Rfam assigns this 46-nucleotide sequence from Trachymyrmex cornetzi to the family "Histone 3' UTR stem-loop". The base pairs follow the family's consensus structure, which is taken from published work. Taxonomically the source falls in Trachymyrmex (Eukaryota, Metazoa, Arthropoda, Myrmicinae). From the family's description: The mRNAs of metazoan histone genes lack a poly-A tail. 3' end processing occurs at a site between a highly conserved stem-loop (modelled by this family) and a purine rich region around 20 nts downstream (the histone downstream element, or HDE). The stem-loop is bound by a 31 kDa stem-loop binding protein (SLBP - also termed the histone hairpin binding protein, or HBP). Together with U7 snRNA binding of the HDE, SLBP binding nucleate s the formation of the processing complex. The histone 3' UTR stem-loop is also involved in nucleocytoplasmic transport of the mRNA, and in stability regulation and translation efficiency in the cytoplasm.
RNA sequence: CAAUCGGCCCUUUUCAGGGCCAACAAAACACUCUGUAAAUUCGUCU
Numbered sequence: 001c002a003a004u005c006g007g008c009c010c011u012u013u014u015c016a017g018g019g020c021c022a023a024c025a026a027a028a029c030a031c032u033c034u035g036u037a038a039a040u041u042c043g044u045c046u
Stems, first nucleotide, its partner, number of pairs: 006021006